[Rfam]
RNA sequence: CGGGGCGUGGUGUAACGGCUAACAUGCAUCACUUGGGCUGAUGUGACUCUGGGUUCGAAUCCCAGCGCUCCGA
Numbered sequence: 001c002g003g004g005g006c007g008u009g010g011u012g013u014a015a016c017g018g019c020u021a022a023c024a025u026g027c028a029u030c031a032c033u034u035g036g037g038c039u040g041a042u043g044u045g046a047c048u049c050u051g052g053g054u055u056c057g058a059a060u061c062c063c064a065g066c067g068c069u070c071c072g073a
Base pairs, nucleotide, nucleotide: 001072002071003070004069005068006067007066010025011024012023013022027043028042029041030040031039049065050064051063052062053061
Dot-bracket structure: (((((((..((((........)))).(((((.......))))).....(((((.......)))))))))))).
About this RNA
Rfam assigns this 73-nucleotide RNA sequence from a Candidatus Parcubacteria bacterium to the family "tRNA". The family's consensus secondary structure is taken from published work. Rfam classes the family as a transfer RNA. Taxonomically the source falls in Candidatus Parcubacteria (Bacteria, Bacteria candidate phyla). Rfam links the family to the GO term triplet codon-amino acid adaptor activity.